Background:
Small nucleolar RNA SNORA8: a 137-nucleotide sequence from Mus musculus. The family's consensus secondary structure was predicted with RNAfold. The family's RNA type in Rfam is H/ACA-box small nucleolar RNA. About the family: ACA8 is a member of the H/ACA class of snoRNA that guide the sites of modification of uridines to pseudouridines.
RNA sequence: UGCACUGCAUGGUAUCUGCACUCAGCAGUUCUUUCCUGUUGGGUGUUCAAAAGACAGUGUGAUAGAAACUCACUAUCUGGCAUCGUUGGUUUCUUGGCUUUGUGCGUGUUAAACCUGGUAUUUCUAAUGAUACAGUU
Numbered sequence: 001u002g003c004a005c006u007g008c009a010u011g012g013u014a015u016c017u018g019c020a021c022u023c024a025g026c027a028g029u030u031c032u033u034u035c036c037u038g039u040u041g042g043g044u045g046u047u048c049a050a051a052a053g054a055c056a057g058u059g060u061g062a063u064a065g066a067a068a069c070u071c072a073c074u075a076u077c078u079g080g081c082a083u084c085g086u087u088g089g090u091u092u093c094u095u096g097g098c099u100u101u102g103u104g105c106g107u108g109u110u111a112a113a114c115c116u117g118g119u120a121u122u123u124c125u126a127a128u129g130a131u132a133c134a135g136u137u
Base pairs, nucleotide, nucleotide: 002060003059004058005057006056007055015053017051018046019045020044021043022042023041024040025039026038027037028036063126064125065124066123067122068121070118071117072116080105081104082103083102
The organism belongs to Mus, within Eukaryota. Gene Ontology terms of the family: RNA processing and nucleolus.